This 130-nucleotide sequence from Eleutherodactylus coqui belongs to the Rfam family "Small nucleolar RNA SNORA15". Gene Ontology terms of the family: RNA processing and nucleolus. About the family: ACA15 is a member of the H/ACA class of snoRNA that guide the sites of modification of uridines to pseudouridines. By type it is an H/ACA-box small nucleolar RNA.
[Rfam]
RNA sequence: GCAUGGAUGAAUUCUGCAUUACCUUCUAGUAGAUUUUGCAGUCAGACACCGUGCUAAAGUAAAUCACAUGCGUGCUUUGCUAUUUGGCGUUUCUUCUCUUGGCAGCGUCUUGGCACAAUUGUGAACACCU
Numbered sequence: 001g002c003a004u005g006g007a008u009g010a011a012u013u014c015u016g017c018a019u020u021a022c023c024u025u026c027u028a029g030u031a032g033a034u035u036u037u038g039c040a041g042u043c044a045g046a047c048a049c050c051g052u053g054c055u056a057a058a059g060u061a062a063a064u065c066a067c068a069u070g071c072g073u074g075c076u077u078u079g080c081u082a083u084u085u086g087g088c089g090u091u092u093c094u095u096c097u098c099u100u101g102g103c104a105g106c107g108u109c110u111u112g113g114c115a116c117a118a119u120u121g122u123g124a125a126c127a128c129c130u
Base pairs, nucleotide, nucleotide: 001054002053003052004051005050006049014041015040016039017038018037065123066122067121068119069118072116073115074114075113080112082110085107086106089103090102091101